A member of the RNA family "T-box leader" from Peptoclostridium acidaminophilum, 237 nucleotides long. The family has 48 seed sequences and 19,395 matches in Rfam 15.1.
[Rfam]
RNA sequence: UUAAAUCUUGUGAUUGGAAGAGUAGGUACUGUGAUUGUUGUACAGCGAGCCGGCGGCGGUGGGAGCCCGGCACAUAGCUUUGCCGAAACGUAUCCAUGAAGAGGUUUUUCCAAAGGCAUGCCAGCGGUAUGCGUGAGUAGAAAAACCCGGCCAGCCCGUUAAAGCGUUCGAGAUAAAAUGGCAGCAAUAUUGCCAUUUUAAAAAGAGUGGUACCGCGAAACAGCUUUCGUCUCUUUG
Numbered sequence: 001u002u003a004a005a006u007c008u009u010g011u012g013a014u015u016g017g018a019a020g021a022g023u024a025g026g027u028a029c030u031g032u033g034a035u036u037g038u039u040g041u042a043c044a045g046c047g048a049g050c051c052g053g054c055g056g057c058g059g060u061g062g063g064a065g066c067c068c069g070g071c072a073c074a075u076a077g078c079u080u081u082g083c084c085g086a087a088a089c090g091u092a093u094c095c096a097u098g099a100a101g102a103g104g105u106u107u108u109u110c111c112a113a114a115g116g117c118a119u120g121c122c123a124g125c126g127g128u129a130u131g132c133g134u135g136a137g138u139a140g141a142a143a144a145a146c147c148c149g150g151c152c153a154g155c156c157c158g159u160u161a162a163a164g165c166g167u168u169c170g171a172g173a174u175a176a177a178a179u180g181g182c183a184g185c186a187a188u189a190u191u192g193c194c195a196u197u198u199u200a201a202a203a204a205g206a207g208u209g210g211u212a213c214c215g216c217g218a219a220a221c222a223g224c225u226u227u228c229g230u231c232u233c234u235u236u237g
Base pairs, nucleotide, nucleotide: 007101008100015096016095017094018093025084026083027082028081039072049071050070051069052067053066054065104146105145106144107143108142109141110140148158149157150156175199176198177197178196179195180194181193182192183191184190204234205233206232207231215230216229217228218227219226
The literature on the family includes a 1994 paper in J Bacteriol by Grundy et al., "Interaction between the acceptor end of tRNA and the T box stimulates antitermination in the Bacillus subtilis tyrS gene: a new role for the discriminator base".
A search with the family's covariance model found it, with a score of 112 bits.